[Rfam]
RNA: nhaA-I RNA
RNA sequence: GGGUGCGUGCAUCGGACAGCGAUGCGGGCAGGAGAGUGACGCUGGUCGGGCCGCCAGUG
Numbered sequence: 001g002g003g004u005g006c007g008u009g010c011a012u013c014g015g016a017c018a019g020c021g022a023u024g025c026g027g028g029c030a031g032g033a034g035a036g037u038g039a040c041g042c043u044g045g046u047c048g049g050g051c052c053g054c055c056a057g058u059g
Stems, first nucleotide, its partner, number of pairs: 005029002008026005040059007